Annotation: Shown here is a 139-nucleotide RNA from Albula goreensis, a member of the family "Small nucleolar RNA SNORD10". The base pairs follow the family's consensus structure, which was predicted with WAR. For this family Rfam cites "RNomics: an experimental approach that identifies 201 candidates for novel, small, non-messenger RNAs in mouse" (Huttenhofer et al., EMBO J, 2001). Lineage of the source: Eukaryota > Eumetazoa > Teleostei > Albulidae > Albula. It is annotated as a C/D-box small nucleolar RNA. The family has 22 seed sequences and 433 matches in Rfam 15.1. The match comes from Rfam's covariance-model search (80 bits).
Nucleotides: 139
Base pairs, nucleotide, nucleotide: 001139002138003137004136043101044100045099046098047097049095050094051093
Number, partner (000 for none) and nucleotide at each position: 001139g002138u003137u004136u005000u006000a007000u008000g009000a010000u011000g012000a013000u014000u015000c016000c017000c018000a019000u020000g021000c022000g023000u024000g025000u026000c027000a028000a029000c030000u031000g032000a033000u034000c035000c036000c037000a038000g039000a040000g041000u042000c043101c044100c045099c046098u047097g048000c049095u050094g051093c052000c053000c054000c055000g056000u057000c058000a059000c060000c061000c062000u063000g064000c065000u066000g067000c068000c069000g070000u071000u072000c073000u074000g075000u076000c077000a078000g079000c080000a081000g082000g083000a084000c085000u086000g087000c088000a089000c090000a091000g092000u093051g094050c095049a096000u097047c098046a099045g100044g101043g102000c103000u104000c105000u106000g107000g108000g109000g110000c111000c112000a113000u114000g115000a116000u117000c118000a119000u120000c121000a122000c123000u124000u125000a126000c127000u128000g129000u130000g131000g132000c133000u134000g135000a136004a137003a138002a139001c